[Rfam]
RNA sequence: UAGGUUCGUCCUAAGUCAAACUUGUUCAACUUUAACUAAAUUUAUAGAAAAAUAUAACAACAUCUAUAUUACCGAAUACAUACACUAUCAAAACAUAUUCCAUGGUGAAUUCAAUGAAACAAAUUUGGUAGUAUAAAUGUUGUUAUAUUUCUCUAUAAAUAUAGUUAAAGUUGAAUAACUUUGAUUAGGACAAACGUAA
Number, nucleotide and partner (000 for none) at each position: 001u000002a000003g000004g000005u194006u193007c000008g191009u190010c000011c188012u187013a186014a185015g000016u184017c183018a182019a181020a180021c000022u178023u177024g176025u175026u174027c000028a000029a000030c000031u169032u168033u167034a166035a165036c000037u000038a000039a000040a000041u000042u000043u155044a154045u000046a152047g151048a150049a149050a148051a000052a000053u000054a000055u145056a144057a143058c000059a141060a140061c139062a138063u137064c000065u135066a134067u133068a132069u000070u000071a000072c128073c127074g126075a125076a124077u123078a000079c000080a000081u000082a000083c000084a000085c000086u000087a000088u000089c000090a000091a000092a000093a000094c000095a000096u000097a000098u000099u000100c000101c000102a000103u000104g000105g000106u000107g000108a000109a000110u000111u000112c000113a000114a000115u000116g000117a000118a000119a000120c000121a000122a000123a077124u076125u075126u074127g073128g072129u000130a000131g000132u068133a067134u066135a065136a000137a063138u062139g061140u060141u059142g000143u057144u056145a055146u000147a000148u050149u049150u048151c047152u046153c000154u044155a043156u000157a000158a000159a000160u000161a000162u000163a000164g000165u035166u034167a033168a032169a031170g000171u000172u000173g000174a026175a025176u024177a023178a022179c000180u020181u019182u018183g017184a016185u014186u013187a012188g011189g000190a009191c008192a000193a006194a005195c000196g000197u000198a000199a000